[Rfam]
RNA sequence: UACAAUAGGGUUCUCAUGGGUGGUGGCUGGCUCUCUGAAAGAGGGUGAUGCUUAUGACUGUUUUUGAAACGCUCUUCUUAAUGGUCUCUUUCGGAUCAUUAGUUGCAGCCAUUCUGUCAGUUGGAAAGUGAGUAACCACCCAUUAGCCUGGUGAGCAUGGGUGAUUACCAAACCUGUAGCGAGCCGCUCCCUUUAGAGAGCUAUUGUACAAAGCCAUUGGUGUUGCCGCACCGAUGG
Numbered sequence: 001u002a003c004a005a006u007a008g009g010g011u012u013c014u015c016a017u018g019g020g021u022g023g024u025g026g027c028u029g030g031c032u033c034u035c036u037g038a039a040a041g042a043g044g045g046u047g048a049u050g051c052u053u054a055u056g057a058c059u060g061u062u063u064u065u066g067a068a069a070c071g072c073u074c075u076u077c078u079u080a081a082u083g084g085u086c087u088c089u090u091u092c093g094g095a096u097c098a099u100u101a102g103u104u105g106c107a108g109c110c111a112u113u114c115u116g117u118c119a120g121u122u123g124g125a126a127a128g129u130g131a132g133u134a135a136c137c138a139c140c141c142a143u144u145a146g147c148c149u150g151g152u153g154a155g156c157a158u159g160g161g162u163g164a165u166u167a168c169c170a171a172a173c174c175u176g177u178a179g180c181g182a183g184c185c186g187c188u189c190c191c192u193u194u195a196g197a198g199a200g201c202u203a204u205u206g207u208a209c210a211a212a213g214c215c216a217u218u219g220g221u222g223u224u225g226c227c228g229c230a231c232c233g234a235u236g237g
Stems, first nucleotide, its partner, number of pairs: 001208005007202001009185004013146002016143005022136001024134002028047002031045005056118003060114001070083002093110002096107001156176002186201004214237010

Rfam assigns this 237-nucleotide sequence from Alkalibacillus haloalkaliphilus to the family "BsrG". The family's consensus secondary structure was predicted with WAR. Rfam links the family to the GO terms toxin activity and autolysis. bsrE, bsrG and bsrH pair through intermolecular interactions with antisense sRNAs. It is annotated as a small RNA. Lineage of the source: Bacteria > Bacillati > Caryophanales > Bacillaceae > Alkalibacillus. The literature on the family includes a 2008 paper in Gene by Saito et al., "Novel small RNA-encoding genes in the intergenic regions of Bacillus subtilis".